The record is a 54-nucleotide RNA from Coregonus sp. 'balchen', which matches "UnaL2 LINE 3' element" in Rfam. Rfam classes the family as a cis-regulatory element. Pairs were carried over by alignment from the consensus structure, which is taken from published work. The match comes from Rfam's covariance-model search (60 bits).
[Rfam]
RNA sequence: UGCAGUCACUACUGUAAAUCGCUCUGGUUAAGAGCGUCUGCUAAAUGACAACAA
Numbered sequence: 001u002g003c004a005g006u007c008a009c010u011a012c013u014g015u016a017a018a019u020c021g022c023u024c025u026g027g028u029u030a031a032g033a034g035c036g037u038c039u040g041c042u043a044a045a046u047g048a049c050a051a052c053a054a
Stems, first nucleotide, its partner, number of pairs: 013043001014041003020036006